Source information
Shown here is a 77-nucleotide RNA from Brenthis ino, a member of the family "mir-306 microRNA precursor family". For this family Rfam cites "The small RNA profile during Drosophila melanogaster development" (Aravin et al., Dev Cell, 2003). The base pairs follow the family's consensus structure, which was predicted with RNAalifold.

RNA sequence: GCGUUCGUCGUGUCAGGUACUAGGUGACUCUGAGUGGAGUGGUCUCAGAGACGCCUCGUGCCUCAGCACGGUGGCGC
Numbered sequence: 001g002c003g004u005u006c007g008u009c010g011u012g013u014c015a016g017g018u019a020c021u022a023g024g025u026g027a028c029u030c031u032g033a034g035u036g037g038a039g040u041g042g043u044c045u046c047a048g049a050g051a052c053g054c055c056u057c058g059u060g061c062c063u064c065a066g067c068a069c070g071g072u073g074g075c076g077c
Stems, first nucleotide, its partner, number of pairs: 001077005009070002015063006023055004028050007